[Rfam]
RNA sequence: CCUUUCGUGCGGUGGUUUCCUGUUACCGGUCAUUGCUAGGCGUUGGAAGAAUUAGGCUUAAUUGGAGUAACCUGAAUGGCUCGUAUAGCAGGUGUCAACAUACCAGAU
Number, nucleotide and partner (000 for none) at each position: 001c000002c049003u048004u047005u046006c045007g044008u000009g043010c042011g000012g000013u000014g000015g000016u000017u000018u000019c092020c091021u090022g000023u000024u000025a000026c000027c083028g082029g081030u000031c000032a000033u000034u000035g000036c106037u105038a000039g000040g000041c000042g010043u009044u007045g006046g005047a004048a003049g002050a000051a000052u000053u000054a000055g000056g000057c000058u000059u000060a000061a000062u000063u000064g000065g000066a000067g000068u000069a000070a000071c000072c000073u000074g000075a000076a000077u000078g000079g000080c000081u029082c028083g027084u000085a000086u000087a000088g000089c000090a021091g020092g019093u000094g000095u000096c000097a000098a000099c000100a000101u000102a000103c000104c000105a037106g036107a000108u000
Rfam assigns this 108-nucleotide sequence from gamma proteobacterium BDW918 to the family "Alpha operon ribosome binding site". The literature on the family includes a 2001 paper in J Biol Chem by Schlax et al., "Translational repression of the Escherichia coli alpha operon mRNA: importance of an mRNA conformational switch and a ternary entrapment complex". The match comes from Rfam's covariance-model search (41 bits). NCBI's taxonomy places the organism under Bacteria, Pseudomonadati, Pseudomonadota, Gammaproteobacteria, Spongiibacteraceae. Rfam describes the family as follows. The bacterial alpha operon ribosome binding site is surrounded by this complex pseudoknotted structure. Translation of the mRNA produces 4 ribosomal protein products, one of which (S4) acts as a translational repressor by binding to the nested pseudoknot region. The mechanism of repression is thought to involve a conformational switch in the pseudoknot region and ribosome entrapment. Rfam classes the family as a cis-regulatory element. Its family is annotated with ribosome binding in the Gene Ontology.